[Rfam]
RNA sequence: AAUCGCACUAUAUUUCAAGCUUAUAUAUCGCCAUGAUAAGGAUGGCAGUUUCUACCUUGUGCCGUAAAUACAAGACUAUAAGCAAAAAUCGUACGUAU
Numbered sequence: 001a002a003u004c005g006c007a008c009u010a011u012a013u014u015u016c017a018a019g020c021u022u023a024u025a026u027a028u029c030g031c032c033a034u035g036a037u038a039a040g041g042a043u044g045g046c047a048g049u050u051u052c053u054a055c056c057u058u059g060u061g062c063c064g065u066a067a068a069u070a071c072a073a074g075a076c077u078a079u080a081a082g083c084a085a086a087a088a089u090c091g092u093a094c095g096u097a098u
Stems, first nucleotide, its partner, number of pairs: 019083007030046005056074006
Background:
This 98-nucleotide RNA from Enterococcus florum belongs to the Rfam family "Purine riboswitch aptamer". Riboswitches are metabolite binding domains within certain messenger RNAs that serve as precision sensors for their corresponding targets. Allosteric rearrangement of mRNA structure is mediated by ligand binding, and this results in modulation of gene expression. A class of riboswitches that selectively recognises guanine and becomes saturated at concentrations as low as 5 nM. In Bacillus subtilis, this mRNA motif is located on at least five separate transcriptional units that together encode 17 genes that are mostly involved in purine transport and purine nucleotide biosynthesis. It has also been shown that some members of this family are specific for adenine instead. Lineage of the source: Bacteria > Bacillati > Bacilli > Enterococcaceae > Enterococcus. The base pairs follow the family's consensus structure, which is taken from published work.